[Rfam]
RNA sequence: CGCAUCUGAUGAUGAAGCUGCAUAGGGCAGAUUCUGAGCUGAGAGGCAGAGCCCCUUAGCGCUGAUCCUCAGCUUAUGCGGGCUGAAGGUGCG
Numbered sequence: 001c002g003c004a005u006c007u008g009a010u011g012a013u014g015a016a017g018c019u020g021c022a023u024a025g026g027g028c029a030g031a032u033u034c035u036g037a038g039c040u041g042a043g044a045g046g047c048a049g050a051g052c053c054c055c056u057u058a059g060c061g062c063u064g065a066u067c068c069u070c071a072g073c074u075u076a077u078g079c080g081g082g083c084u085g086a087a088g089g090u091g092c093g
Stems, first nucleotide, its partner, number of pairs: 001093007018081006026070002030066001033065002036062001038060006
Notes: Small nucleolar RNA SNORD90: a 93-nucleotide sequence from Varanus komodoensis. It is annotated as a C/D-box small nucleolar RNA. For this family Rfam cites "RNomics: an experimental approach that identifies 201 candidates for novel, small, non-messenger RNAs in mouse" (Huttenhofer et al., EMBO J, 2001). The organism belongs to Varanus, within Eukaryota. A search with the family's covariance model found it, with a score of 43 bits. Rfam 15.1 lists 545 matches to the family in 524 species. snoRNA HBII-295 belongs to the family of C/D snoRNAs. It is the human orthologue of the mouse MBII-295 and has no identified RNA target.